Shown here is a 145-nucleotide RNA, a member of the family "Alphaproteobacterial sRNA ar7". Pairs were carried over by alignment from the consensus structure. It scores 76 bits against the family's covariance model.

RNA sequence: UGUCGACGAUAGAUCGAUGUCCGGGAUUUAAGGCUCGUCCCCCGCCUGCCCCGGACUUGCGGUGACCUCAUCCCCCCUCUCCGGGUCGCCGCAUCUGAGUGUAGUGAUCUGGUCGCCUGUGGUCCCCCCGCCACGGCGGCCAUUU
Numbered sequence: 001u002g003u004c005g006a007c008g009a010u011a012g013a014u015c016g017a018u019g020u021c022c023g024g025g026a027u028u029u030a031a032g033g034c035u036c037g038u039c040c041c042c043c044g045c046c047u048g049c050c051c052c053g054g055a056c057u058u059g060c061g062g063u064g065a066c067c068u069c070a071u072c073c074c075c076c077c078u079c080u081c082c083g084g085g086u087c088g089c090c091g092c093a094u095c096u097g098a099g100u101g102u103a104g105u106g107a108u109c110u111g112g113u114c115g116c117c118u119g120u121g122g123u124c125c126c127c128c129c130g131c132c133a134c135g136g137c138g139g140c141c142a143u144u145u
Stems, first nucleotide, its partner, number of pairs: 020055006032046003058093010106141001113139005119134005

On this family, see del Val et al., RNA Biol 2012: "A survey of sRNA families in alpha-proteobacteria".